Annotation:
The record is a 229-nucleotide RNA from Drosophila gunungcola, which matches "R2 RNA element" in Rfam. Rfam's curators write: This family represents the 3' UTR region of the R2 retrotransposable element. This family is known to interact with the R2-encoded reverse transcriptase in a reaction known as target primed reverse transcription (TPRT). Rfam classes the family as a cis-regulatory element. The organism belongs to elegans subgroup (in: flies), within Eukaryota.
RNA sequence: AAGAAUAUUUAGGUUUGGUUCAUAUCAUUGCCUGCUACCUUGGCAUUAAAAGUUUGGAAACUAAAGGUAUAAACACAGCCUUCGUGGUAUGAGGUGGUUUUUAGUACGUAGGCGUUGUAGAACAAAUUCUCUAUUUAUCUGAGAUCUACAACGAAUCGUGCAUGCGAGUUAGCGAUAUGUAUCAGAAACAAGCGAACUCGUAUCUAUGAAGAUUUUCCAUCCUCGCGUC
Numbered sequence: 001a002a003g004a005a006u007a008u009u010u011a012g013g014u015u016u017g018g019u020u021c022a023u024a025u026c027a028u029u030g031c032c033u034g035c036u037a038c039c040u041u042g043g044c045a046u047u048a049a050a051a052g053u054u055u056g057g058a059a060a061c062u063a064a065a066g067g068u069a070u071a072a073a074c075a076c077a078g079c080c081u082u083c084g085u086g087g088u089a090u091g092a093g094g095u096g097g098u099u100u101u102u103a104g105u106a107c108g109u110a111g112g113c114g115u116u117g118u119a120g121a122a123c124a125a126a127u128u129c130u131c132u133a134u135u136u137a138u139c140u141g142a143g144a145u146c147u148a149c150a151a152c153g154a155a156u157c158g159u160g161c162a163u164g165c166g167a168g169u170u171a172g173c174g175a176u177a178u179g180u181a182u183c184a185g186a187a188a189c190a191a192g193c194g195a196a197c198u199c200g201u202a203u204c205u206a207u208g209a210a211g212a213u214u215u216u217c218c219a220u221c222c223u224c225g226c227g228u229c
Base pairs, nucleotide, nucleotide: 036069037068038067039066040065041064075228076227078226079225091224092223093222094221096218097217104161105160106159107158108157113153114152115151116150117149118148119147120146121145163202164201165200166199167198168197169196170195